[Rfam]
Rfam assigns this 107-nucleotide RNA from Gracilibacillus dipsosauri to the family "SAM riboswitch aptamer (S box leader)". Pairs were carried over by alignment from the consensus structure, which is taken from published work. The source organism's lineage runs through Bacteria, Bacillati, Bacillota, Bacillaceae and Gracilibacillus.
RNA sequence: CUCUUAUCAAGAGAGGCAGAGGGACUGGCCCGAUGACGCCCAGCAACCAUUAAGCUUCAGCUUAAAAGGUGCUAAAUCCUGCAGGAAACAUUCCUGAUAGAUAAGAG
Number, nucleotide and partner (000 for none) at each position: 001c107002u106003c105004u104005u103006a102007u101008c100009a000010a000011g000012a000013g041014a000015g040016g039017c038018a000019g000020a000021g031022g030023g029024a000025c081026u000027g079028g078029c023030c022031c021032g000033a000034u000035g000036a000037c000038g017039c016040c015041c013042a073043g072044c071045a070046a000047c069048c068049a000050u065051u064052a063053a062054g000055c000056u000057u000058c000059a000060g000061c000062u053063u052064a051065a050066a000067a000068g048069g047070u045071g044072c043073u042074a000075a000076a000077u099078c028079c027080u000081g025082c096083a095084g094085g093086a092087a091088a000089c000090a000091u087092u086093c085094c084095u083096g082097a000098u000099a077100g008101a007102u006103a005104a004105g003106a002107g001